[Rfam]
RNA sequence: AGAGGUCACAAGUUUGAGGCCACAGCAGACGUGUCUACAGCACAGCCCUACCAGAUUCCAAUGAAUCUGCAAAUUCUAUU
Numbered sequence: 001a002g003a004g005g006u007c008a009c010a011a012g013u014u015u016g017a018g019g020c021c022a023c024a025g026c027a028g029a030c031g032u033g034u035c036u037a038c039a040g041c042a043c044a045g046c047c048c049u050a051c052c053a054g055a056u057u058c059c060a061a062u063g064a065a066u067c068u069g070c071a072a073a074u075u076c077u078a079u080u
Base pairs, nucleotide, nucleotide: 016048018047019046020045024080025079027077028076029075031043032042033041052069053068054067055066056065057064058063
Rfam assigns this 80-nucleotide RNA from Alligator sinensis to the family "Mammalian CPEB3 ribozyme".
The match comes from Rfam's covariance-model search (43 bits).
The family's consensus secondary structure is taken from published work.
Its family is annotated with RNA nuclease activity in the Gene Ontology.